Rfam assigns this 571-nucleotide part of an RNA from Candidatus Mancarchaeum acidiphilum to the family "Archaeal large subunit ribosomal RNA".
The family has 91 seed sequences and 2,955 matches in Rfam 15.1.
The match comes from Rfam's covariance-model search (2239 bits).
Gene Ontology terms of the family: structural constituent of ribosome and ribosome.
The organism belongs to Candidatus Mancarchaeum, within Archaea.
[Rfam]
RNA sequence: CCAUCAGUGGGAAAUGAAGUCUCUAUGAAGCUUGACUAUAGCCUGUAGUUGUUGCAUGUCUUGUUAUACAUAGCGUAAGUGGGAGCGUCGAUAUUUGGGCUCUGGCCCAAAUGGAGCACCAAUGUAACACCACUUAUAACUUGCCAUACAGCUAACUAGAAAUAGGACAUCUGCAGGUGGAUAGUUAGACUGGACGGUCGCUUUCGAUAAGGAAACGAAAGUGGCCAAUGCUCUGCUUAGAUGAGUUGGAAACUCAUCGGUAAGCUCAAAGGCAAAUGCAGGGCUGACUGUAUACUGAAAAGCGUGGUAUGCAGACUGGAAACAGGGGCUUAACGAACUUUGGUAGCUCUUUUAAUGGGGCUCCAAGCUGUCAGACAAGUUACUCUAGAGGUAACUGAUUUGUAGCCGGUGAGAGUUCACAUCGACCCGGCUGUUUGAUACCUCGAUAUGGGCUUGAGUUAUCCUGGUGGUACACAAGCUGCCAAGGGUUGGGCUGUACGCCCAUCAAAAACUCACAUGAGCUGCGUUUAGUACGUCGCGAGACAGUACGGUAAGAUCUACUGAUGGUGUC
Numbered sequence: 001c002c003a004u005c006a007g008u009g010g011g012a013a014a015u016g017a018a019g020u021c022u023c024u025a026u027g028a029a030g031c032u033u034g035a036c037u038a039u040a041g042c043c044u045g046u047a048g049u050u051g052u053u054g055c056a057u058g059u060c061u062u063g064u065u066a067u068a069c070a071u072a073g074c075g076u077a078a079g080u081g082g083g084a085g086c087g088u089c090g091a092u093a094u095u096u097g098g099g100c101u102c103u104g105g106c107c108c109a110a111a112u113g114g115a116g117c118a119c120c121a122a123u124g125u126a127a128c129a130c131c132a133c134u135u136a137u138a139a140c141u142u143g144c145c146a147u148a149c150a151g152c153u154a155a156c157u158a159g160a161a162a163u164a165g166g167a168c169a170u171c172u173g174c175a176g177g178u179g180g181a182u183a184g185u186u187a188g189a190c191u192g193g194a195c196g197g198u199c200g201c202u203u204u205c206g207a208u209a210a211g212g213a214a215a216c217g218a219a220a221g222u223g224g225c226c227a228a229u230g231c232u233c234u235g236c237u238u239a240g241a242u243g244a245g246u247u248g249g250a251a252a253c254u255c256a257u258c259g260g261u262a263a264g265c266u267c268a269a270a271g272g273c274a275a276a277u278g279c280a281g282g283g284c285u286g287a288c289u290g291u292a293u294a295c296u297g298a299a300a301a302g303c304g305u306g307g308u309a310u311g312c313a314g315a316c317u318g319g320a321a322a323c324a325g326g327g328g329c330u331u332a333a334c335g336a337a338c339u340u341u342g343g344u345a346g347c348u349c350u351u352u353u354a355a356u357g358g359g360g361c362u363c364c365a366a367g368c369u370g371u372c373a374g375a376c377a378a379g380u381u382a383c384u385c386u387a388g389a390g391g392u393a394a395c396u397g398a399u400u401u402g403u404a405g406c407c408g409g410u411g412a413g414a415g416u417u418c419a420c421a422u423c424g425a426c427c428c429g430g431c432u433g434u435u436u437g438a439u440a441c442c443u444c445g446a447u448a449u450g451g452g453c454u455u456g457a458g459u460u461a462u463c464c465u466g467g468u469g470g471u472a473c474a475c476a477a478g479c480u481g482c483c484a485a486g487g488g489u490u491g492g493g494c495u496g497u498a499c500g501c502c503c504a505u506c507a508a509a510a511a512c513u514c515a516c517a518u519g520a521g522c523u524g525c526g527u528u529u530a531g532u533a534c535g536u537c538g539c540g541a542g543a544c545a546g547u548a549c550g551g552u553a554a555g556a557u558c559u560a561c562u563g564a565u566g567g568u569g570u571c
Base pairs, nucleotide, nucleotide: 001567002566003565004564005563006562007561008560010559011558012557015554022389023388024387025386027385028384029381030380031379032378033377035185036184037183038182042177043176044175045174046173047172048171051152052151053150054149056147057146058145060143063140064139065138066137067136068135078134079133080132081131082130085117086116096109097108098107099106100105156165157164158163188199189198190197191196200222201221202220203219204218205217225328226327231283232282233281234280235279236278237263238262240258241257242256243255244254245253264273265272288314289313290312291311292310293309294308295307296306316325318323339367340366341365342364343363345362346361347360348359349358398439399438400437402436403433404432405431406430407429408428409427413423414422450525451523452522453521454520455517456514457513458512459511460510463488464487467482468481469480470479471478490504491503492502493501494500531549532548533547534546535544536543537542